[Rfam]
RNA sequence: AUUAGAGCAGUGACGAGCACUUUUUGUGGACUAGAGUUUCUGAUACUACCUUGGUAGUAUUUGACGACCAAACCCUUGGCUGUCUGAGCUCUGAA
Number, nucleotide and partner (000 for none) at each position: 001a000002u094003u093004a092005g091006a090007g089008c088009a000010g000011u000012g000013a000014c000015g000016a000017g000018c000019a000020c000021u000022u000023u000024u000025u000026g000027u000028g000029g000030a000031c000032u000033a000034g000035a000036g000037u066038u000039u064040c063041u000042g000043a000044u059045a058046c057047u056048a055049c054050c000051u000052u000053g000054g049055u048056a047057g046058u045059a044060u000061u000062u000063g040064a039065c000066g037067a000068c000069c000070a000071a000072a000073c000074c000075c000076u000077u000078g000079g000080c000081u000082g000083u000084c000085u000086g000087a000088g008089c007090u006091c005092u004093g003094a002095a000
RNA: Small nucleolar RNA Z157/R69/R10
Organism: Dichanthelium oligosanthes